[Rfam]
RNA sequence: AACGGAGCCGGCUCUACCCCCCCAGAGCCGGACCGUUAGACGGCCCCCGCUCUCCCCCCGGCGGGGGCCGUCCCUA
Numbered sequence: 001a002a003c004g005g006a007g008c009c010g011g012c013u014c015u016a017c018c019c020c021c022c023c024a025g026a027g028c029c030g031g032a033c034c035g036u037u038a039g040a041c042g043g044c045c046c047c048c049g050c051u052c053u054c055c056c057c058c059c060g061g062c063g064g065g066g067g068c069c070g071u072c073c074c075u076a
Base pairs, nucleotide, nucleotide: 002036003035004034005033008031009030010029011028012027013026014025039072040071041070042069043068044067045066046065047064048063049062050061051060
Dot-bracket structure: .((((..(((((((..........))))))).))))..(((((((((((((........)))))))))))))....
Description:
The family of this 76-nucleotide RNA sequence from Lipingzhangella halophila is "6C RNA". The match comes from Rfam's covariance-model search (60 bits). Pairs were carried over by alignment from the consensus structure, which is taken from published work. For this family Rfam cites "Identification of 22 candidate structured RNAs in bacteria using the CMfinder comparative genomics pipeline" (Weinberg et al., Nucleic Acids Res, 2007). By type it is a cis-regulatory element. The organism belongs to Lipingzhangella, within Bacteria.